Record summary: Shown here is a 500-nucleotide sequence from Streptomyces argyrophylli, a member of the family "Saccharopolyspora sRNA 350". The organism belongs to Streptomyces, within Bacteria. A reference for the family is Liu et al. (2013), "Prediction and characterization of small non-coding RNAs related to secondary metabolites in Saccharopolyspora erythraea", PLoS One. Rfam 15.1 lists 1,170 matches to the family in 705 species. The family's consensus secondary structure was predicted with RNAfold. Rfam links the family to the GO term regulation of secondary metabolite biosynthetic process. A search with the family's covariance model found it, with a score of 169 bits.
RNA sequence: CGGACGGUGUACUCCCAGAUCGCCUCCGGGUCGAGCAGCGCCUGGUCGCCGAAGUAGGCGCCGUCGGCGAGGACACCGAGGACGGCGUCGUCGCCGUAGGGACCCGUGCUGACCUUCUCCACCCGGCCGUGGGCGAGCAGGUAGACCUCGUCCGCCUGGUUGCCGAAGUCGGCGAUCACCUCGCCGGGCGCGAAGUCGCGCUGCCGGCAGCGGCGGGCCAGCUCGGUCAGCACCUCCGUGUCCUCGUACGACCGCAGGGCCGGCAACUCGCCCAGCUCGUUCGGGAUGACCUCCACCUGGUUGCCGGUCUUCACGAAGGUGAUCCGGCCGUCGCCGACGGCGUACGUCAGGCGCCGGUUCACCCGGUACGUGCCGCCCUGGACGUCCACCCAGGGAAGCGUGCGCAGCAGCCAGCGGGAGCUGAUCUCCUGCAUCUGCGGAACGGACUUGGUGGUGGUGGCCAGGUUCCGCGCGGCCGCCGUCCCGAGGGACUGCUGCGG
Numbered sequence: 001c002g003g004a005c006g007g008u009g010u011a012c013u014c015c016c017a018g019a020u021c022g023c024c025u026c027c028g029g030g031u032c033g034a035g036c037a038g039c040g041c042c043u044g045g046u047c048g049c050c051g052a053a054g055u056a057g058g059c060g061c062c063g064u065c066g067g068c069g070a071g072g073a074c075a076c077c078g079a080g081g082a083c084g085g086c087g088u089c090g091u092c093g094c095c096g097u098a099g100g101g102a103c104c105c106g107u108g109c110u111g112a113c114c115u116u117c118u119c120c121a122c123c124c125g126g127c128c129g130u131g132g133g134c135g136a137g138c139a140g141g142u143a144g145a146c147c148u149c150g151u152c153c154g155c156c157u158g159g160u161u162g163c164c165g166a167a168g169u170c171g172g173c174g175a176u177c178a179c180c181u182c183g184c185c186g187g188g189c190g191c192g193a194a195g196u197c198g199c200g201c202u203g204c205c206g207g208c209a210g211c212g213g214c215g216g217g218c219c220a221g222c223u224c225g226g227u228c229a230g231c232a233c234c235u236c237c238g239u240g241u242c243c244u245c246g247u248a249c250g251a252c253c254g255c256a257g258g259g260c261c262g263g264c265a266a267c268u269c270g271c272c273c274a275g276c277u278c279g280u281u282c283g284g285g286a287u288g289a290c291c292u293c294c295a296c297c298u299g300g301u302u303g304c305c306g307g308u309c310u311u312c313a314c315g316a317a318g319g320u321g322a323u324c325c326g327g328c329c330g331u332c333g334c335c336g337a338c339g340g341c342g343u344a345c346g347u348c349a350g351g352c353g354c355c356g357g358u359u360c361a362c363c364c365g366g367u368a369c370g371u372g373c374c375g376c377c378c379u380g381g382a383c384g385u386c387c388a389c390c391c392a393g394g395g396a397a398g399c400g401u402g403c404g405c406a407g408c409a410g411c412c413a414g415c416g417g418g419a420g421c422u423g424a425u426c427u428c429c430u431g432c433a434u435c436u437g438c439g440g441a442a443c444g445g446a447c448u449u450g451g452u453g454g455u456g457g458u459g460g461c462c463a464g465g466u467u468c469c470g471c472g473c474g475g476c477c478g479c480c481g482u483c484c485c486g487a488g489g490g491a492c493u494g495c496u497g498c499g500g
Stems, first nucleotide, its partner, number of pairs: 006390004011385002015381002018325001020322005025316002033312001037311002040308003045305001047303002050300001052298001054233002060227004065111004075107001077106002080103001082097005118221001122217002127212001130209001132205004140197001143196001149192002154189007161178002235295001240290003244286002249283003253279002256277002261270002329342004351379001353377001355375003360372003391431005397425001399423002403418001405416001407415001437476002440473001443470004447465006484500003487496002